[Rfam]
The family of this 129-nucleotide RNA sequence from Formicarius rufipectus is "Small nucleolar RNA SNORA17". On this family, see Ofengand and Bakin, J Mol Biol 1997: "Mapping to nucleotide resolution of pseudouridine residues in large subunit ribosomal RNAs from representative eukaryotes, prokaryotes, archaebacteria, mitochondria and chloroplasts". A search with the family's covariance model found it, with a score of 54 bits. The family is grouped with related families in Rfam's "SNORA17 clan". The source organism's lineage runs through Eukaryota, Eumetazoa, Neognathae, Formicariidae and Formicarius.

RNA sequence: ACUGCUUGUGUUGCAGGCGUGGCUGCAGUGCCACGUUUGUGUCAUUAGGUGGCAGAGAGGAAACGGGAAGGUCUUCCCCUGGUGCUCUGACCCACAUGGGCUCCCAGGAUUGCUCAACAGCCUGACAUU
Numbered sequence: 001a002c003u004g005c006u007u008g009u010g011u012u013g014c015a016g017g018c019g020u021g022g023c024u025g026c027a028g029u030g031c032c033a034c035g036u037u038u039g040u041g042u043c044a045u046u047a048g049g050u051g052g053c054a055g056a057g058a059g060g061a062a063a064c065g066g067g068a069a070g071g072u073c074u075u076c077c078c079c080u081g082g083u084g085c086u087c088u089g090a091c092c093c094a095c096a097u098g099g100g101c102u103c104c105c106a107g108g109a110u111u112g113c114u115c116a117a118c119a120g121c122c123u124g125a126c127a128u129u
Stems, first nucleotide, its partner, number of pairs: 002048003008042002013040004018035006064124004069114002075109003080106003084101004
Dot-bracket structure: .(((...((...((((.((((((......)))))).))))))...)))...............((((.((....(((..(((.((((..........))))..))))))...))......)))).....